[Rfam]
RNA sequence: GCCGAGAGCCGGGUCUUUGCGGGCGAGGUGAGGGCUUUCGGUUCAACUGGCCUUCAAAGUCCCAGUCCUCGCC
Numbered sequence: 001g002c003c004g005a006g007a008g009c010c011g012g013g014u015c016u017u018u019g020c021g022g023g024c025g026a027g028g029u030g031a032g033g034g035c036u037u038u039c040g041g042u043u044c045a046a047c048u049g050g051c052c053u054u055c056a057a058a059g060u061c062c063c064a065g066u067c068c069u070c071g072c073c
Stems, first nucleotide, its partner, number of pairs: 003071004008066001011063003015059005021053004026048002029045002

The record is a 73-nucleotide RNA from Ornithorhynchus anatinus, which matches "mir-193 microRNA precursor family" in Rfam. A search with the family's covariance model found it, with a score of 64 bits. Pairs were carried over by alignment from the consensus structure, which was predicted with RNAalifold. Gene Ontology terms of the family: RISC complex and miRNA-mediated post-transcriptional gene silencing. The family has 54 seed sequences and 1,158 matches in Rfam 15.1.